[Rfam]
RNA sequence: UCGGCCAGUCUUCAGCGAACUGGUGUAAGUCCUUGCUUUGGGCCGGUAUUUGGAUGAUGAAUUGCUUGAGGCUGGGAUCACGUGUGUUGCGGCGACUCAGGUAUAUCGCCCAUUGGAAGCUCGGUGUUGACAUUCUGUCCUGGACGUAGGUUCGAGGCAGGAGGCCAUUAAAUAACUGACUAUCGUAGGCCAGCAAUGGAUCAACGAGAAUGUUGGUAGCACUGGGCAGUCUGGUGGAUCACGAGAAUUAGUGGGGGUUGCGGCACAUGCCAGCUUUGGGUGGAGACUACCAUCCGCUU
Numbered sequence: 001u002c003g004g005c006c007a008g009u010c011u012u013c014a015g016c017g018a019a020c021u022g023g024u025g026u027a028a029g030u031c032c033u034u035g036c037u038u039u040g041g042g043c044c045g046g047u048a049u050u051u052g053g054a055u056g057a058u059g060a061a062u063u064g065c066u067u068g069a070g071g072c073u074g075g076g077a078u079c080a081c082g083u084g085u086g087u088u089g090c091g092g093c094g095a096c097u098c099a100g101g102u103a104u105a106u107c108g109c110c111c112a113u114u115g116g117a118a119g120c121u122c123g124g125u126g127u128u129g130a131c132a133u134u135c136u137g138u139c140c141u142g143g144a145c146g147u148a149g150g151u152u153c154g155a156g157g158c159a160g161g162a163g164g165c166c167a168u169u170a171a172a173u174a175a176c177u178g179a180c181u182a183u184c185g186u187a188g189g190c191c192a193g194c195a196a197u198g199g200a201u202c203a204a205c206g207a208g209a210a211u212g213u214u215g216g217u218a219g220c221a222c223u224g225g226g227c228a229g230u231c232u233g234g235u236g237g238a239u240c241a242c243g244a245g246a247a248u249u250a251g252u253g254g255g256g257g258u259u260g261c262g263g264c265a266c267a268u269g270c271c272a273g274c275u276u277u278g279g280g281u282g283g284a285g286a287c288u289a290c291c292a293u294c295c296g297c298u299u
Stems, first nucleotide, its partner, number of pairs: 001046003004024006011017001029043003051296006058289001060288001062286001063284001065282001067278009081269008090260004096255004106244003110237002113234005119227009128167002131164001133162007141154005168174001175217006190199003
A member of the RNA family "Metazoan signal recognition particle RNA" from Linnemannia gamsii, 299 nucleotides long. The family's RNA type in Rfam is non-coding RNA gene. A search with the family's covariance model found it, with a score of 73 bits. From the family's description: The signal recognition particle (SRP) is a universally conserved ribonucleoprotein. It is involved in the co-translational targeting of proteins to membranes. Taxonomically the source falls in Linnemannia (Eukaryota, Fungi, Mortierellomycotina, Mortierellales).